[Rfam]
RNA: Small nucleolar RNA SNORD27
Organism: Sus scrofa
RNA sequence: ACUCCAUGAUGAACGGUAAAAUGACAAGCAUAUGCCUGAACUCAAAAAAGUGAUGUCAUCUUAACUACUGAGAAGU
Numbered sequence: 001a002c003u004c005c006a007u008g009a010u011g012a013a014c015g016g017u018a019a020a021a022u023g024a025c026a027a028g029c030a031u032a033u034g035c036c037u038g039a040a041c042u043c044a045a046a047a048a049a050g051u052g053a054u055g056u057c058a059u060c061u062u063a064a065c066u067a068c069u070g071a072g073a074a075g076u
Stems, first nucleotide, its partner, number of pairs: 001076002003073002